Background:
Shown here is a 138-nucleotide RNA sequence from Picathartes gymnocephalus, a member of the family "Small nucleolar RNA SNORA8". The family's consensus secondary structure was predicted with RNAfold.
RNA sequence: UGCAGUGUUACAGUACUCCCCACCCAGCAGCCUUCUGGUGGGAUGUUCAAAAAGCAAUGCUACAGCAGUGCAGUGUUUGGCAUCUUUGGUUUUCACUCUGCUGUGUCUGUUAAACCUGGUAUUUUUGCUGAAACAGUC
Numbered sequence: 001u002g003c004a005g006u007g008u009u010a011c012a013g014u015a016c017u018c019c020c021c022a023c024c025c026a027g028c029a030g031c032c033u034u035c036u037g038g039u040g041g042g043a044u045g046u047u048c049a050a051a052a053a054g055c056a057a058u059g060c061u062a063c064a065g066c067a068g069u070g071c072a073g074u075g076u077u078u079g080g081c082a083u084c085u086u087u088g089g090u091u092u093u094c095a096c097u098c099u100g101c102u103g104u105g106u107c108u109g110u111u112a113a114a115c116c117u118g119g120u121a122u123u124u125u126u127g128c129u130g131a132a133a134c135a136g137u138c
Stems, first nucleotide, its partner, number of pairs: 002060003006056002016054002021045002024042002026039001028037003063127003067123003071118003079107005

Notes:
Rfam's curators write: ACA8 is a member of the H/ACA class of snoRNA that guide the sites of modification of uridines to pseudouridines. It scores 64 bits against the family's covariance model. Lineage of the source: Eukaryota > Dipnotetrapodomorpha > Dinosauria > Saurischia > Picathartes. Rfam 15.1 lists 1,490 matches to the family in 610 species. The family's RNA type in Rfam is H/ACA-box small nucleolar RNA. The family is grouped with related families in Rfam's "SNORA8 clan". Its family is annotated with RNA processing and nucleolus in the Gene Ontology.